RNA sequence: UUGCAAGCUUUCCAGCAUGCUUGGGUCUCGGGUGACUCUGUGCGUUUCUGCAGUGCUUGCUAGAAUGUCCUGAAAUGGUUUGAGGCUGUGCCCUAUCUCUUCCUCAGAACAUGGUCCUAGACAUUUCAGACAAUU
Numbered sequence: 001u002u003g004c005a006a007g008c009u010u011u012c013c014a015g016c017a018u019g020c021u022u023g024g025g026u027c028u029c030g031g032g033u034g035a036c037u038c039u040g041u042g043c044g045u046u047u048c049u050g051c052a053g054u055g056c057u058u059g060c061u062a063g064a065a066u067g068u069c070c071u072g073a074a075a076u077g078g079u080u081u082g083a084g085g086c087u088g089u090g091c092c093c094u095a096u097c098u099c100u101u102c103c104u105c106a107g108a109a110c111a112u113g114g115u116c117c118u119a120g121a122c123a124u125u126u127c128a129g130a131c132a133a134u135u
Stems, first nucleotide, its partner, number of pairs: 003060006018044003023038005071128005086114005093107002
Shown here is a 135-nucleotide RNA from Canis lupus, a member of the family "Small nucleolar RNA SNORA9". The family is grouped with related families in Rfam's "SNORA9 clan". It is annotated as an H/ACA-box small nucleolar RNA. Its family is annotated with RNA processing and nucleolus in the Gene Ontology. Pairs were carried over by alignment from the consensus structure, which was predicted with PFOLD. The match comes from Rfam's covariance-model search (110 bits). Rfam's curators write: ACA9 is a member of the H/ACA class of snoRNA that guide the sites of modification of uridines to pseudouridines.